RNA: L31-Actinobacteria ribosomal protein leader
RNA sequence: CCGGUACCGGUUCACGGUUGGCGUCGCGCUCUGUUCGUGCCGUCGAUCGACCCGGCGACC
Dot-bracket structure: ..(((.((((....(((((((((.................)))))))))..))))..)))
Numbered sequence: 001c002c003g004g005u006a007c008c009g010g011u012u013c014a015c016g017g018u019u020g021g022c023g024u025c026g027c028g029c030u031c032u033g034u035u036c037g038u039g040c041c042g043u044c045g046a047u048c049g050a051c052c053c054g055g056c057g058a059c060c
Stems, first nucleotide, its partner, number of pairs: 003060003007055004015049009